[Rfam]
RNA sequence: AGGUCAUUUCAAAGAGAGUUUGUGGGACUGAAAACUGCACAUUCUUAGUGUUGUGACCAAAGAUUGGUGCUCUCCACAGAAUGACAGAGUCACUUCAUAGUGCUGUGUUUUCUGAGGAGAGACAUCC
Numbered sequence: 001a002g003g004u005c006a007u008u009u010c011a012a013a014g015a016g017a018g019u020u021u022g023u024g025g026g027a028c029u030g031a032a033a034a035c036u037g038c039a040c041a042u043u044c045u046u047a048g049u050g051u052u053g054u055g056a057c058c059a060a061a062g063a064u065u066g067g068u069g070c071u072c073u074c075c076a077c078a079g080a081a082u083g084a085c086a087g088a089g090u091c092a093c094u095u096c097a098u099a100g101u102g103c104u105g106u107g108u109u110u111u112c113u114g115a116g117g118a119g120a121g122a123c124a125u126c127c
Stems, first nucleotide, its partner, number of pairs: 002058006014046006021039001026036001071120005078113004086106001088104002091102004
RNA: Small nucleolar RNA SNORA25
Organism: Nannospalax galili